RNA sequence: CAUUUAUCUGUGAUGUCUGAAAUAAAUGUCUGAACAUAUGAAUUUUUGUGAUUUCAGUUUUUAGUACUGAGAUAAAUG
Dot-bracket structure: .(((((((..............................................................))))))).
RNA: Small nucleolar RNA SNORD72
Organism: Hymenochirus boettgeri